[Rfam]
RNA sequence: CUGAGCUAGUGAUGACAAAUGUUAUCCCUGUCUGAAAUUGCUAUUUUCUGUGUAGAAGUGUGAUUCUGAGGCUCAG
Numbered sequence: 001c002u003g004a005g006c007u008a009g010u011g012a013u014g015a016c017a018a019a020u021g022u023u024a025u026c027c028c029u030g031u032c033u034g035a036a037a038u039u040g041c042u043a044u045u046u047u048c049u050g051u052g053u054a055g056a057a058g059u060g061u062g063a064u065u066c067u068g069a070g071g072c073u074c075a076g
Stems, first nucleotide, its partner, number of pairs: 001076007

This 76-nucleotide RNA sequence from Ptilonorhynchus violaceus belongs to the Rfam family "Small nucleolar RNA R38". snoR38 is a C/D box small nucleolar RNA conserved across yeast, human, Arabidopsis and rice. The family has 19 seed sequences and 2,295 matches in Rfam 15.1. A search with the family's covariance model found it, with a score of 56 bits. A reference for the family is Bachellerie et al. (1995), "Antisense snoRNAs: a family of nucleolar RNAs with long complementarities to rRNA", Trends Biochem Sci. The source organism's lineage runs through Eukaryota, Deuterostomia, Chordata, Aves and Ptilonorhynchus. Its family is annotated with RNA processing and nucleolus in the Gene Ontology.